[Rfam]
RNA sequence: CUCUUGUCAAGAACUUAUUCUGUGACCUGCGUGACAUUUAGCCACAUCACAGUCUGAGUUCUUGCUGAGCG
Numbered sequence: 001c002u003c004u005u006g007u008c009a010a011g012a013a014c015u016u017a018u019u020c021u022g023u024g025a026c027c028u029g030c031g032u033g034a035c036a037u038u039u040a041g042c043c044a045c046a047u048c049a050c051a052g053u054c055u056g057a058g059u060u061c062u063u064g065c066u067g068a069g070c071g
Stems, first nucleotide, its partner, number of pairs: 003069003008064009020052006029045001031043001
mir-11 microRNA precursor family: a 71-nucleotide RNA from Drosophila persimilis. A reference for the family is Marco et al. (2010), "Functional shifts in insect microRNA evolution", Genome Biol Evol. It is one of the family's seed sequences. Its family is annotated with negative regulation of cell death, RISC complex and negative regulation of apoptotic process in the Gene Ontology.